Shown here is a 172-nucleotide RNA sequence from Aliiglaciecola lipolytica, a member of the family "Molybdenum/Tungsten riboswitch aptamer (Moco RNA motif)". A search with the family's covariance model found it, with a score of 72 bits. Lineage of the source: Bacteria > Pseudomonadati > Gammaproteobacteria > Alteromonadaceae > Aliiglaciecola lipolytica.

[Rfam]
RNA sequence: CUCAAAAAGAAACUCCGAGCCUUUUUUUGCUAAGUAUUGAAUUUCAAUAUAGGUAAAUUAGGCCGCAACUGUUUACGGUUGCCAGGGUUGAUCAGGAAACUGAUUUGCCUCCCGCUACACAUGCGGCAAUUUCGUUGUAUGUGACUUUGGAAAGGUGUUUAACGUGUUAGAA
Numbered sequence: 001c002u003c004a005a006a007a008a009g010a011a012a013c014u015c016c017g018a019g020c021c022u023u024u025u026u027u028u029g030c031u032a033a034g035u036a037u038u039g040a041a042u043u044u045c046a047a048u049a050u051a052g053g054u055a056a057a058u059u060a061g062g063c064c065g066c067a068a069c070u071g072u073u074u075a076c077g078g079u080u081g082c083c084a085g086g087g088u089u090g091a092u093c094a095g096g097a098a099a100c101u102g103a104u105u106u107g108c109c110u111c112c113c114g115c116u117a118c119a120c121a122u123g124c125g126g127c128a129a130u131u132u133c134g135u136u137g138u139a140u141g142u143g144a145c146u147u148u149g150g151a152a153a154g155g156u157g158u159u160u161a162a163c164g165u166g167u168u169a170g171a172a
Base pairs, nucleotide, nucleotide: 011159012158013157015155016154019063020062021061022060025057026056028055029054030053034050035049036048037047038046039045065082066081067080068079069078085110086109087108088107090105091104092103093102094101095100111150112149
Dot-bracket structure: ..........(((.((..((((..((.(((...((((((.....))))))..)))))..)))).(((((........)))))..((((.((((((....)))))).))))((....................................))...)).))).............